The family of this 62-nucleotide RNA sequence from Burkholderia sp. SRS-W-2-2016 is "Fluoride riboswitch aptamer (crcB RNA motif)". The family's consensus secondary structure is taken from published work. It scores 55 bits against the family's covariance model. NCBI's taxonomy places the organism under Bacteria, Pseudomonadota, Betaproteobacteria, Burkholderiales, Burkholderia.
RNA sequence: UGCGCGGCUGGAGAUGGCAUUCUCCAUUAACCGCCCUUGGGGCUGAUGAUGCCUGCUACGCC
Numbered sequence: 001u002g003c004g005c006g007g008c009u010g011g012a013g014a015u016g017g018c019a020u021u022c023u024c025c026a027u028u029a030a031c032c033g034c035c036c037u038u039g040g041g042g043c044u045g046a047u048g049a050u051g052c053c054u055g056c057u058a059c060g061c062c
Base pairs, nucleotide, nucleotide: 010025011024012023013022016053017052018051019050020049021048033043034042035041